[Rfam]
RNA sequence: UUCCGAUCCCGCCGGUCACUCCACAAACUGGCCGCCGCGGACGAAACAAAGGAGGAAUCCCCCGCCGGGCGCUCCCGGUGCGGCAGCGUGGAGACCUGCCGUAAAGCACAGAGAAUCCCGCUUUCUCUGCUGCGAGAAAGGUCGUGCGAAGGCAGACCGCUCAGAGCGAUGAUAAUGGCU
Numbered sequence: 001u002u003c004c005g006a007u008c009c010c011g012c013c014g015g016u017c018a019c020u021c022c023a024c025a026a027a028c029u030g031g032c033c034g035c036c037g038c039g040g041a042c043g044a045a046a047c048a049a050a051g052g053a054g055g056a057a058u059c060c061c062c063c064g065c066c067g068g069g070c071g072c073u074c075c076c077g078g079u080g081c082g083g084c085a086g087c088g089u090g091g092a093g094a095c096c097u098g099c100c101g102u103a104a105a106g107c108a109c110a111g112a113g114a115a116u117c118c119c120g121c122u123u124u125c126u127c128u129g130c131u132g133c134g135a136g137a138a139a140g141g142u143c144g145u146g147c148g149a150a151g152g153c154a155g156a157c158c159g160c161u162c163a164g165a166g167c168g169a170u171g172a173u174a175a176u177g178g179c180u
Base pairs, nucleotide, nucleotide: 007040008039010037011036013034014033015032016031017030018029065078066077067076068075070168071167072166073165074164079103080102081101082100083099084098085097086096088095089094106133107132108131109129110128111127112126113125136162137161140158141157142156143155145154146153147152
RNA: malK-I RNA